[Rfam]
A member of the RNA family "Glycine riboswitch aptamer" from Octadecabacter arcticus, 103 nucleotides long. Rfam's curators write: This family represents the bacterial glycine riboswitch. The match comes from Rfam's covariance-model search (46 bits).
RNA sequence: CAAUCUGGAGAGCGGCGUUAAAAAGCGCCCACCGAAGGAGACGUCACCGUAAAACCCCGUACCUCGGGGACGUGGCAAAACUCUCAGGUCCAAAGACAGAUGG
Number, nucleotide and partner (000 for none) at each position: 001c103002a000003a101004u100005c099006u098007g097008g000009a000010g000011a000012g000013c000014g029015g028016c027017g026018u000019u000020a000021a000022a000023a000024a000025g000026c017027g016028c015029c014030c000031a089032c088033c087034g085035a084036a000037g000038g083039a082040g081041a000042c000043g000044u000045c075046a000047c000048c000049g000050u000051a000052a000053a000054a000055c000056c000057c000058c000059g000060u000061a000062c000063c000064u000065c000066g000067g000068g000069g000070a000071c000072g000073u000074g000075g045076c000077a000078a000079a000080a000081c040082u039083c038084u035085c034086a000087g033088g032089u031090c000091c000092a000093a000094a000095g000096a000097c007098a006099g005100a004101u003102g000103g001